[Rfam]
RNA sequence: UAACUGGACAUGUGAAUGUUCACUGAACUAUCAGAAGUCAGCCGAAGCCAUAGUACCAGAUACUUCUAGAGUAUCUAGGAAGGGC
Number, nucleotide and partner (000 for none) at each position: 001u025002a024003a000004c000005u022006g021007g020008a019009c018010a017011u016012g000013u000014g000015a000016a011017u010018g009019u008020u007021c006022a005023c000024u002025g001026a000027a000028c000029u000030a000031u000032c000033a000034g000035a000036a000037g000038u045039c044040a000041g000042c000043c000044g039045a038046a000047g085048c084049c083050a000051u000052a000053g000054u000055a000056c078057c000058a076059g075060a074061u073062a072063c071064u000065u000066c000067u000068a000069g000070a000071g063072u062073a061074u060075c059076u058077a000078g056079g000080a000081a000082g000083g049084g048085c047
Rfam assigns this 85-nucleotide RNA sequence from Oceanobacillus sp. J11TS1 to the family "Group II catalytic intron D1-D4-1". Rfam 15.1 lists 2,508 matches to the family in 1,144 species. Its family is annotated with Group II intron splicing in the Gene Ontology. Group II introns are found in rRNA, tRNA and mRNA of organelles in fungi, plants and protists, and also in mRNA in bacteria. Lineage of the source: Bacteria > Bacillota > Caryophanales > Bacillaceae > Oceanobacillus.